[Rfam]
RNA sequence: UGAGUUGGCUGGGCGGCCGCGGCUCGCGUAGGGCUUGUGUGGAUUCACGAGGUUCAGCGUCGAGUCGAGGAAAGUCCGGACUUCACAGAGCAGGGUGAUUGCUAACGGCAAUCCGAGGUGACUCGCGGGAAAGUGCCACAGAAAACAGACCGCCAUCCUCGUGGUGGCAAGGGUGAAACGGUGCGGUAAGAGCGCACCAGCAUUCCGGGUGACCGGGGUGGCUAGGCAAACCCCACCCGAAGCAAGGCCAAGAAGGCCGCACCGAAAGUGCGGCCGCGCAGGCGCUUGAGGGUUGCUCGCCCGAGCCUGCGGGUAGGCCGCUCGAGGCACCCGGUAACGGUGUGUCCAGAUGGAUGGUCGCCGCCGUGCCGCCGUUAGCUUGGCUGUGGCGGCGCGGAACAGAAUCCGGCUUACAGGCCAACUCGUCCG
Numbered sequence: 001u002g003a004g005u006u007g008g009c010u011g012g013g014c015g016g017c018c019g020c021g022g023c024u025c026g027c028g029u030a031g032g033g034c035u036u037g038u039g040u041g042g043a044u045u046c047a048c049g050a051g052g053u054u055c056a057g058c059g060u061c062g063a064g065u066c067g068a069g070g071a072a073a074g075u076c077c078g079g080a081c082u083u084c085a086c087a088g089a090g091c092a093g094g095g096u097g098a099u100u101g102c103u104a105a106c107g108g109c110a111a112u113c114c115g116a117g118g119u120g121a122c123u124c125g126c127g128g129g130a131a132a133g134u135g136c137c138a139c140a141g142a143a144a145a146c147a148g149a150c151c152g153c154c155a156u157c158c159u160c161g162u163g164g165u166g167g168c169a170a171g172g173g174u175g176a177a178a179c180g181g182u183g184c185g186g187u188a189a190g191a192g193c194g195c196a197c198c199a200g201c202a203u204u205c206c207g208g209g210u211g212a213c214c215g216g217g218g219u220g221g222c223u224a225g226g227c228a229a230a231c232c233c234c235a236c237c238c239g240a241a242g243c244a245a246g247g248c249c250a251a252g253a254a255g256g257c258c259g260c261a262c263c264g265a266a267a268g269u270g271c272g273g274c275c276g277c278g279c280a281g282g283c284g285c286u287u288g289a290g291g292g293u294u295g296c297u298c299g300c301c302c303g304a305g306c307c308u309g310c311g312g313g314u315a316g317g318c319c320g321c322u323c324g325a326g327g328c329a330c331c332c333g334g335u336a337a338c339g340g341u342g343u344g345u346c347c348a349g350a351u352g353g354a355u356g357g358u359c360g361c362c363g364c365c366g367u368g369c370c371g372c373c374g375u376u377a378g379c380u381u382g383g384c385u386g387u388g389g390c391g392g393c394g395c396g397g398a399a400c401a402g403a404a405u406c407c408g409g410c411u412u413a414c415a416g417g418c419c420a421a422c423u424c425g426u427c428c429g
Base pairs, nucleotide, nucleotide: 001425002424003423004422005421006420007419008418009417010416011414012362013361014360015359016358017357018356020067021066022065023064024063025062026061072412073411074410076409077408078407079406080405081242082241083240084239088298089297090296091295093238094237095236096235097234098112099111100110101109102108113127114125115124116123117122128233129232133231134230135227136226137225150172151171152168153167154166155165156164157163180198181197182196183195184194185193200222201220202219203218204217205216206215207214208213246319247318248317249316290302291301292300293299326346327345328344329343330342331340332339333338